RNA sequence: UGGCGCCCGAACAGGGACCUGGAAACAAGGGACUCCCAUGAGGGAAGAGACGCCAAAGAGUCGACCGCUAAUAAAGACAAAAGGAUGUCAAAUUCUUCCGAUCACCGCGGAACCUGCGCGGUCAGGAUCGAAGGGUAAGUGACGCCAUCCGAAAUGGGACGAAUUAUUAAGCCAACAUAAAUAUAUGUAGACAAUUAAAAGGAGGCUUUAAAGAUACCAAGGGAGUAAGGUUAAAGAAUGAUUUGUUUAAAUUUUUAGAUUUCUGUAAAAGGAGACACUCCUGCCCUU
Numbered sequence: 001u002g003g004c005g006c007c008c009g010a011a012c013a014g015g016g017a018c019c020u021g022g023a024a025a026c027a028a029g030g031g032a033c034u035c036c037c038a039u040g041a042g043g044g045a046a047g048a049g050a051c052g053c054c055a056a057a058g059a060g061u062c063g064a065c066c067g068c069u070a071a072u073a074a075a076g077a078c079a080a081a082a083g084g085a086u087g088u089c090a091a092a093u094u095c096u097u098c099c100g101a102u103c104a105c106c107g108c109g110g111a112a113c114c115u116g117c118g119c120g121g122u123c124a125g126g127a128u129c130g131a132a133g134g135g136u137a138a139g140u141g142a143c144g145c146c147a148u149c150c151g152a153a154a155u156g157g158g159a160c161g162a163a164u165u166a167u168u169a170a171g172c173c174a175a176c177a178u179a180a181a182u183a184u185a186u187g188u189a190g191a192c193a194a195u196u197a198a199a200a201g202g203a204g205g206c207u208u209u210a211a212a213g214a215u216a217c218c219a220a221g222g223g224a225g226u227a228a229g230g231u232u233a234a235a236g237a238a239u240g241a242u243u244u245g246u247u248u249a250a251a252u253u254u255u256u257a258g259a260u261u262u263c264u265g266u267a268a269a270a271g272g273a274g275a276c277a278c279u280c281c282u283g284c285c286c287u288u
Stems, first nucleotide, its partner, number of pairs: 006031003037049001039047001094135002096132002102127001103125001105121005143161002148158004168210003171206003217258001219256001222255005228244006268288002271285002

A member of the RNA family "Mason-Pfizer monkey virus packaging signal" from Macaca nemestrina, 288 nucleotides long. A reference for the family is Mustafa et al. (2004), "Mutational analysis of the predicted secondary RNA structure of the Mason-Pfizer monkey virus packaging signal", Virus Res. Pairs were carried over by alignment from the consensus structure, which was predicted with PFOLD. It scores 124 bits against the family's covariance model. Rfam describes the family as follows. This family represents a group of sequences that are related to the Mason-Pfizer monkey virus (MPMV) packaging signal. The packaging signal is located in the 5' UTR and is required for specific RNA encapsidation. It is annotated as a cis-regulatory element.